Rfam assigns this 96-nucleotide sequence from Streptococcus pyogenes to the family "S. pyogenes small RNA Spy490380c". Rfam's curators put it in the seed alignment. The source organism's lineage runs through Bacteria, Bacillati, Bacillota, Bacilli and Streptococcus pyogenes serotype M49. The base pairs follow the family's consensus structure, which was predicted with RNAfold.
RNA sequence: AUAAUUAACUAAACUUAAUUAAAUAAAUAAUAUAUCCUAAGGAGAGAAAUGAUGGGAAAGAGAAUGAGCCUCAUUUUGGGUGCUUUUUAAUCUGUU
Numbered sequence: 001a002u003a004a005u006u007a008a009c010u011a012a013a014c015u016u017a018a019u020u021a022a023a024u025a026a027a028u029a030a031u032a033u034a035u036c037c038u039a040a041g042g043a044g045a046g047a048a049a050u051g052a053u054g055g056g057a058a059a060g061a062g063a064a065u066g067a068g069c070c071u072c073a074u075u076u077u078g079g080g081u082g083c084u085u086u087u088u089a090a091u092c093u094g095u096u
Base pairs, nucleotide, nucleotide: 002021003020004019005018006017007016008015035057036056037055038054039053059093060092061091066085067084068083069082070080071079072078073077
Dot-bracket structure: .(((((((......))))))).............(((((.............))))).(((....((((((((...)))).)))).....)))...